Background:
Shown here is a 61-nucleotide RNA from Tenacibaculum jejuense, a member of the family "S15-Flavobacteria ribosomal protein leader". It scores 60 bits against the family's covariance model. Taxonomically the source falls in Tenacibaculum (Bacteria, Pseudomonadati, Bacteroidota, Flavobacteriaceae). The literature on the family includes a 2020 paper in BMC Microbiol by Eckert and Weinberg, "Discovery of 20 novel ribosomal leader candidates in bacteria and archaea".
Nucleotides: 061
Base pairs, nucleotide, nucleotide: 014029015028016027017026019024
Number, partner (000 for none) and nucleotide at each position: 001000u002000a003000c004000u005000u006000u007000u008000g009000c010000c011000a012000c013000u014029u015028c016027a017026a018000u019024g020000a021000a022000a023000a024019u025000u026017u027016u028015g029014a030000u031000a032000c033000a034000u035000u036000a037000a038000a039000a040000u041000c042000a043000u044000u045000u046000a047000a048000a049000c050000a051000a052000u053000a054000u055000u056000g057000g058000u059000a060000u061000g